[Rfam]
RNA sequence: UCUUCAUUCACACUCUCUUUCACCUGUCAGAGAGGCGAGAUAGCGUGCGAAAUGAAGAGA
Number, nucleotide and partner (000 for none) at each position: 001u058002c057003u056004u055005c054006a053007u052008u000009c049010a000011c047012a046013c045014u000015c043016u042017c000018u040019u039020u038021c037022a000023c000024c000025u000026g000027u000028c000029a000030g000031a000032g000033a000034g000035g000036c000037g021038a020039g019040a018041u000042a016043g015044c000045g013046u012047g011048c000049g009050a000051a000052a007053u006054g005055a004056a003057g002058a001059g000060a000
This 60-nucleotide sequence from Pristionchus pacificus belongs to the Rfam family "mir-8364 microRNA precursor family". The match comes from Rfam's covariance-model search (69 bits). The source organism's lineage runs through Eukaryota, Opisthokonta, Bilateria, Protostomia and Pristionchus.